A member of the RNA family "RtT RNA" from Tenebrionibacter intestinalis, 132 nucleotides long. Rfam describes the family as follows. This family represents a bacterial cis-regulatory element known as RtT RNA. The exact function of RtT is unknown although it is thought that it may be involved in changing the cellular response in relation to amino acid starvation. The literature on the family includes a 1991 paper in Nucleic Acids Res by Bosl and Kersten, "A novel RNA product of the tyrT operon of Escherichia coli". Rfam links the family to the GO term cellular response to amino acid starvation. The match comes from Rfam's covariance-model search (110 bits).

[Rfam]
RNA sequence: CACCGCCCCAAGGGGGGAAGGUUGAGAACCUUCGAUAAAGGUUCGGGUCGAACGUAAGCGAGACAACGUUGCCGCAGGCAACGGCCCGAAGGGUGAGCCGCCCUGCGGCGAAUAAUCCCUCCCCCACCACCA
Number, nucleotide and partner (000 for none) at each position: 001c000002a000003c000004c000005g000006c000007c000008c000009c000010a000011a000012g000013g000014g000015g123016g122017g121018a120019a000020g118021g117022u000023u115024g000025a000026g000027a000028a000029c000030c000031u000032u000033c095034g094035a000036u093037a000038a000039a000040g000041g000042u090043u089044c088045g087046g000047g000048u000049c060050g059051a000052a000053c000054g000055u000056a000057a000058g000059c050060g049061a000062g000063a000064c000065a000066a000067c083068g082069u081070u080071g079072c078073c000074g000075c000076a000077g000078g072079c071080a070081a069082c068083g067084g000085c000086c000087c045088g044089a043090a042091g000092g000093g036094u034095g033096a000097g000098c000099c000100g000101c000102c000103c000104u000105g000106c000107g000108g000109c000110g000111a000112a000113u000114a000115a023116u000117c021118c020119c000120u018121c017122c016123c015124c000125c000126a000127c000128c000129a000130c000131c000132a000